[Rfam]
RNA sequence: GAUAGGCCUUUGUACCGUACAAAUCAUUUAGAUUGGCCUUGGAAAGCAACAUAGGAA
Numbered sequence: 001g002a003u004a005g006g007c008c009u010u011u012g013u014a015c016c017g018u019a020c021a022a023a024u025c026a027u028u029u030a031g032a033u034u035g036g037c038c039u040u041g042g043a044a045a046g047c048a049a050c051a052u053a054g055g056a057a
Base pairs, nucleotide, nucleotide: 020036022034023033024032025031
Dot-bracket structure: ...................(.((((.....)))).).....................
Rfam assigns this 57-nucleotide sequence from Camellia sinensis to the family "Plastid-ndhJ 3UTR RNA". About the family: Plastid ndhJ is a non-coding RNA (ncRNA) present in plastids. It was identified as a short stem-loop motif in the 3 prime untranslate region (3UTR) of ndhJ gene. The source organism's lineage runs through Eukaryota, Viridiplantae, Euphyllophyta, Magnoliopsida and Camellia sinensis. The match comes from Rfam's covariance-model search (45 bits). For this family Rfam cites "Retrograde signaling in plants: A critical review focusing on the GUN pathway and beyond" (Richter et al., Plant Commun, 2023).